Notes
This 57-nucleotide sequence belongs to the Rfam family "msiK RNA". The family's consensus secondary structure is taken from published work. It is one of the family's seed sequences. Rfam classes the family as a cis-regulatory element.

RNA sequence: CCGUCGUCUCUUCACAACGGAUCGUCCGGCACGUACCUGCCGGUGGGAGAGGAAAAA
Number, nucleotide and partner (000 for none) at each position: 001c000002c000003g000004u000005c000006g000007u000008c049009u048010c047011u046012u000013c045014a044015c000016a000017a000018c000019g000020g000021a000022u000023c000024g000025u000026c043027c042028g041029g040030c039031a038032c000033g000034u000035a000036c000037c000038u031039g030040c029041c028042g027043g026044u014045g013046g011047g010048a009049g008050a000051g000052g000053a000054a000055a000056a000057a000